RNA sequence: ACCUAUAAAUCGCUGAAUUAUUCUUGAGCGGGGGAACCAAUUUAUUGGGGUGAAUCUUACGUUUGUAAGAAGGGAUACUCUUUAGUCCCUAAUCCGACAGCUAACCUCGUAAGCGUUAUGAAGAGGAGGG
Numbered sequence: 001a002c003c004u005a006u007a008a009a010u011c012g013c014u015g016a017a018u019u020a021u022u023c024u025u026g027a028g029c030g031g032g033g034g035a036a037c038c039a040a041u042u043u044a045u046u047g048g049g050g051u052g053a054a055u056c057u058u059a060c061g062u063u064u065g066u067a068a069g070a071a072g073g074g075a076u077a078c079u080c081u082u083u084a085g086u087c088c089c090u091a092a093u094c095c096g097a098c099a100g101c102u103a104a105c106c107u108c109g110u111a112a113g114c115g116u117u118a119u120g121a122a123g124a125g126g127a128g129g130g
Base pairs, nucleotide, nucleotide: 011115012114013113014112018027019026020025028110029109030108031107032106033105038047039046048095049094050093056069057068058067059066072089073088074087075086
RNA: c-di-AMP riboswitch aptamer (ydaO/yuaA leader)
Organism: Anaerobacillus isosaccharinicus